[Rfam]
RNA sequence: GUUUGUGUGAGGAGUGCGGAACGACCGCUCCGGGUCGAAACGAGGACAGACUCCGGAGCAGCGUUCCAAA
Numbered sequence: 001g002u003u004u005g006u007g008u009g010a011g012g013a014g015u016g017c018g019g020a021a022c023g024a025c026c027g028c029u030c031c032g033g034g035u036c037g038a039a040a041c042g043a044g045g046a047c048a049g050a051c052u053c054c055g056g057a058g059c060a061g062c063g064u065u066c067c068a069a070a
Base pairs, nucleotide, nucleotide: 015068018067019066020065021064022063027059031055032054033053034051035050036049
This 70-nucleotide sequence from Synechococcus sp. GFB01 belongs to the Rfam family "Cyano-1 RNA". The base pairs follow the family's consensus structure, which is taken from published work. The family has 265 seed sequences and 283 matches in Rfam 15.1.